Bacterial RNase P class A: a 339-nucleotide RNA from Moraxella sp. HMSC061H09. The source organism's lineage runs through Bacteria, Pseudomonadati, Moraxellales, Moraxellaceae and Moraxella. Pairs were carried over by alignment from the consensus structure, which is taken from published work. Rfam links the family to the GO terms tRNA processing, dimeric ribonuclease P complex and ribonuclease P activity.
RNA sequence: UUGGCAGACUAGACAAUCGCUGGCACAAUUGUGCGGGAGGAAAGUCCGGGCUACAUAGGGCAAUGUGCUAGCUAACAGCUAGGGGGCGAAAGCCUACGACCAGUGCAGCAGAGAAUAGACCGCCUAUUAAAUAGGUAAGGGUGAAACGGUGGGGUAAGAGCCCACCGCGUGACUGGCGACAGCUCACGGCAAGGUAAACUCCACAUGUAGCAAGACCAAAUAGGAACUCAAUGGGUUGCCCGCUCAGAGUUCGGGUAGGUUGCUUGAGCAUAUCAGCAAUGAUAUGCCUAGAUGAAUGAUUGUCCACGACAGAACUCGGCUUAUCGGUCUGCCUUUACU
Numbered sequence: 001u002u003g004g005c006a007g008a009c010u011a012g013a014c015a016a017u018c019g020c021u022g023g024c025a026c027a028a029u030u031g032u033g034c035g036g037g038a039g040g041a042a043a044g045u046c047c048g049g050g051c052u053a054c055a056u057a058g059g060g061c062a063a064u065g066u067g068c069u070a071g072c073u074a075a076c077a078g079c080u081a082g083g084g085g086g087c088g089a090a091a092g093c094c095u096a097c098g099a100c101c102a103g104u105g106c107a108g109c110a111g112a113g114a115a116u117a118g119a120c121c122g123c124c125u126a127u128u129a130a131a132u133a134g135g136u137a138a139g140g141g142u143g144a145a146a147c148g149g150u151g152g153g154g155u156a157a158g159a160g161c162c163c164a165c166c167g168c169g170u171g172a173c174u175g176g177c178g179a180c181a182g183c184u185c186a187c188g189g190c191a192a193g194g195u196a197a198a199c200u201c202c203a204c205a206u207g208u209a210g211c212a213a214g215a216c217c218a219a220a221u222a223g224g225a226a227c228u229c230a231a232u233g234g235g236u237u238g239c240c241c242g243c244u245c246a247g248a249g250u251u252c253g254g255g256u257a258g259g260u261u262g263c264u265u266g267a268g269c270a271u272a273u274c275a276g277c278a279a280u281g282a283u284a285u286g287c288c289u290a291g292a293u294g295a296a297u298g299a300u301u302g303u304c305c306a307c308g309a310c311a312g313a314a315c316u317c318g319g320c321u322u323a324u325c326g327g328u329c330u331g332c333c334u335u336u337a338c339u
Stems, first nucleotide, its partner, number of pairs: 003333008011324001012304007020037002023034004042322003046319005051210004058241004063206005068082005083097001084095004098201002103199002105195002120140002122136006148166006167190001168188005173182003214261004224252006232246005268287008